RNA sequence: CUCAACAAACUUAUGAUGGGGUGCGCGCUUUUUUAUUGAAUAAGAUAUCGGACUUAUGAACAGA
Number, nucleotide and partner (000 for none) at each position: 001c000002u000003c000004a000005a000006c000007a000008a000009a000010c044011u043012u042013a041014u040015g037016a036017u035018g034019g033020g032021g031022u000023g000024c000025g000026c000027g000028c000029u000030u000031u021032u020033u019034u018035a017036u016037u015038g000039a000040a014041u013042a012043a011044g010045a000046u000047a000048u000049c000050g000051g000052a000053c000054u000055u000056a000057u000058g000059a000060a000061c000062a000063g000064a000

Shown here is a 64-nucleotide RNA sequence from Staphylococcus aureus, a member of the family "Staphylococcus sRNA sau-30". For this family Rfam cites "Identification of differentially expressed small non-protein-coding RNAs in Staphylococcus aureus displaying both the normal and the small-colony variant phenotype" (Abu-Qatouseh et al., J Mol Med (Berl), 2010). Taxonomically the source falls in Staphylococcus aureus (Bacteria, Bacillota, Bacilli, Staphylococcus). Rfam's curators put it in the seed alignment. The family's consensus secondary structure was predicted with mfold.